The record is a 140-nucleotide RNA from Actinacidiphila glaucinigra, which matches "c-di-AMP riboswitch aptamer (ydaO/yuaA leader)" in Rfam. It scores 94 bits against the family's covariance model. Taxonomically the source falls in Actinacidiphila (Bacteria, Bacillati, Actinomycetota, Kitasatosporales).
[Rfam]
RNA sequence: GCCGUGCGCUUGCCGAAUCCCGUCCGCGGGAACCGGGGAACCACUUCCUGGGGUGAAUCGGGGGCCGUUCGCGGUCCUCGUAGGAGACCUUCCUGCUCCGAACCCGUCAGCUAACCCGGUAGGCGAGAAGGAAGGAAAGG
Number, nucleotide and partner (000 for none) at each position: 001g000002c000003c000004g000005u000006g000007c000008g000009c000010u000011u125012g124013c123014c122015g000016a000017a000018u031019c030020c029021c000022g000023u000024c000025c000026g000027c000028g000029g020030g019031a018032a120033c119034c118035g117036g116037g115038g000039a000040a000041c000042c050043a049044c000045u000046u000047c000048c000049u043050g042051g105052g104053g103054u000055g000056a000057a000058u000059c080060g079061g078062g077063g076064g075065c074066c000067g000068u000069u000070c000071g000072c000073g000074g065075u064076c063077c062078u061079c060080g059081u000082a000083g099084g098085a097086g096087a000088c000089c000090u000091u000092c000093c000094u000095g000096c086097u085098c084099c083100g000101a000102a000103c053104c052105c051106g000107u000108c000109a000110g000111c000112u000113a000114a000115c037116c036117c035118g034119g033120u032121a000122g014123g013124c012125g011126a000127g000128a000129a000130g000131g000132a000133a000134g000135g000136a000137a000138a000139g000140g000